[Rfam]
RNA: MIR814 microRNA precursor family
Organism: Oryza sativa
RNA sequence: ACCGGAUGAGACACUUCAUGGUACAACGAAUCUGGGCAGGAAGUAUGUCCGGAUUCGUUGUACUAUGAAGUGUCUCGUUCGGU
Numbered sequence: 001a002c003c004g005g006a007u008g009a010g011a012c013a014c015u016u017c018a019u020g021g022u023a024c025a026a027c028g029a030a031u032c033u034g035g036g037c038a039g040g041a042a043g044u045a046u047g048u049c050c051g052g053a054u055u056c057g058u059u060g061u062a063c064u065a066u067g068a069a070g071u072g073u074c075u076c077g078u079u080c081g082g083u
Base pairs, nucleotide, nucleotide: 001083002082003081004080005079006078007077008076010074011073012072013071014070015069016068018066019065020064021063022062023061024060025059026058027057028056029055030054031053032052033051034050035049036048037047038046